[Rfam]
RNA sequence: CCUUGGGCUCACGCCCAAGGCUACGUGCUGCCGCCCUUCCGGGCU
Number, nucleotide and partner (000 for none) at each position: 001c020002c019003u018004u017005g016006g015007g014008c013009u000010c000011a000012c000013g008014c007015c006016c005017a004018a003019g002020g001021c000022u000023a000024c000025g000026u000027g000028c000029u000030g000031c000032c000033g044034c043035c042036c041037u000038u000039c000040c000041g036042g035043g034044c033045u000
Shown here is a 45-nucleotide RNA sequence from Fuerstiella marisgermanici, a member of the family "Acido-Lenti-1 RNA". The organism belongs to Fuerstiella, within Bacteria. The family's consensus secondary structure is taken from published work. The match comes from Rfam's covariance-model search (41 bits).